Metazoan signal recognition particle RNA: a 300-nucleotide sequence from Otolemur garnettii.
Rfam links the family to the GO terms SRP-dependent cotranslational protein targeting to membrane, signal sequence recognition and signal recognition particle, endoplasmic reticulum targeting.
Pairs were carried over by alignment from the consensus structure, which is taken from published work.
RNA sequence: GCCAGGCGCAGUGGUGUGUGCCUGUAGUCCCAGCUAUGCGGGAGGCUGAGACAGGAGGAUCACAUGAGUCCAGGAGUUCUAGGCUGUAGUGCACUAUGCAGAUUGGGUGUCCACACUAAGUUCGGCAUCAAUAUGGUGACCUCCCAGGAGCAGGGGACCACCAGGUUGCCUAAGGAGGGGUGAACUGACCCAGGUCGGAAAUGGAGCAGGUCAAAGCUCCCGUUCUGAUCAGUAGUGGGAUUGCGUCUGUGAAUAGACACUGCACUCCAGCCUGGGCAACAUAGUGAGACCCUGUCUCAA
Numbered sequence: 001g002c003c004a005g006g007c008g009c010a011g012u013g014g015u016g017u018g019u020g021c022c023u024g025u026a027g028u029c030c031c032a033g034c035u036a037u038g039c040g041g042g043a044g045g046c047u048g049a050g051a052c053a054g055g056a057g058g059a060u061c062a063c064a065u066g067a068g069u070c071c072a073g074g075a076g077u078u079c080u081a082g083g084c085u086g087u088a089g090u091g092c093a094c095u096a097u098g099c100a101g102a103u104u105g106g107g108u109g110u111c112c113a114c115a116c117u118a119a120g121u122u123c124g125g126c127a128u129c130a131a132u133a134u135g136g137u138g139a140c141c142u143c144c145c146a147g148g149a150g151c152a153g154g155g156g157a158c159c160a161c162c163a164g165g166u167u168g169c170c171u172a173a174g175g176a177g178g179g180g181u182g183a184a185c186u187g188a189c190c191c192a193g194g195u196c197g198g199a200a201a202u203g204g205a206g207c208a209g210g211u212c213a214a215a216g217c218u219c220c221c222g223u224u225c226u227g228a229u230c231a232g233u234a235g236u237g238g239g240a241u242u243g244c245g246u247c248u249g250u251g252a253a254u255a256g257a258c259a260c261u262g263c264a265c266u267c268c269a270g271c272c273u274g275g276g277c278a279a280c281a282u283a284g285u286g287a288g289a290c291c292c293u294g295u296c297u298c299a300a
Base pairs, nucleotide, nucleotide: 001046002045003044004023005022006021007020008019009018010017028043029042030041048298049297050296051295052294053293054292055291060287061286062285063284068277069276070275071274072273073272074271079270080269082267083266085264086263087262088261089260090259091258094256095255096254097253099251104249105248106247107246108245109244110243111239112238114237115236116235117234118233120230122228123227124226125225127223128222129168130167131166132165134163135162136161137160138159141156142155143154144153169175170174177220178219179218180217181216186213187212188211189210190209195204196203197202
The organism belongs to Otolemur, within Eukaryota.